[Rfam]
RNA sequence: GACUCUGUAACCUCGUACUGCGAGGGGCUGGGAUAUCCGAGCGGCGAAAGUGUGGACAAGCGAAAGCUCUGCUGCGUAGACUUGGUGUUCUGCUUGGUUGCGCGUCGGUUCCAUUCAAGGCGCCACUGUAGAGAGGUGUCCUAAGAGCCGUUAAAGCUAGGGAAACGCGUCAGGCCGGAAACGGAGCAGCGCACCUUGCGCGCGUUGCCGUUGCAGAAGCACACCGAGGAGCAAGUCAGGUCUUAUC
Numbered sequence: 001g002a003c004u005c006u007g008u009a010a011c012c013u014c015g016u017a018c019u020g021c022g023a024g025g026g027g028c029u030g031g032g033a034u035a036u037c038c039g040a041g042c043g044g045c046g047a048a049a050g051u052g053u054g055g056a057c058a059a060g061c062g063a064a065a066g067c068u069c070u071g072c073u074g075c076g077u078a079g080a081c082u083u084g085g086u087g088u089u090c091u092g093c094u095u096g097g098u099u100g101c102g103c104g105u106c107g108g109u110u111c112c113a114u115u116c117a118a119g120g121c122g123c124c125a126c127u128g129u130a131g132a133g134a135g136g137u138g139u140c141c142u143a144a145g146a147g148c149c150g151u152u153a154a155a156g157c158u159a160g161g162g163a164a165a166c167g168c169g170u171c172a173g174g175c176c177g178g179a180a181a182c183g184g185a186g187c188a189g190c191g192c193a194c195c196u197u198g199c200g201c202g203c204g205u206u207g208c209c210g211u212u213g214c215a216g217a218a219g220c221a222c223a224c225c226g227a228g229g230a231g232c233a234a235g236u237c238a239g240g241u242c243u244u245a246u247c
Base pairs, nucleotide, nucleotide: 011025012024013023014022015021016020062247063246065243066242068240069239070238071237081228082227083226084225085224086223087222088221089217090216091215092214093213096209097208098207100205101204102203103202104201105200106150107149108148109147110146111145117142119140120139121138122137123136124135126133127132151155156199157198159196160195161194167192168191169190170189175184176183177182
Dot-bracket structure: ..........((((((...))))))....................................((.((.((((.........(((((((((((((..(((.((((((((((((.....(.((((((.((....)).)))))).)..))))))(...)((.(((.....((((....(((....)))....)))).))).)))))))).)))...)))))...))))))))........)))).))..))

Rfam assigns this 247-nucleotide RNA sequence from Trypanosoma cruzi to the family "Protozoan signal recognition particle RNA". The literature on the family includes a 2002 paper in Curr Opin Struct Biol by Wild et al., "Towards the structure of the mammalian signal recognition particle". Its family is annotated with signal recognition particle, endoplasmic reticulum targeting and SRP-dependent cotranslational protein targeting to membrane, signal sequence recognition in the Gene Ontology. The organism belongs to Trypanosoma cruzi, within Eukaryota. The family has 18 seed sequences and 111 matches in Rfam 15.1. The match comes from Rfam's covariance-model search (110 bits). The family's RNA type in Rfam is non-coding RNA gene.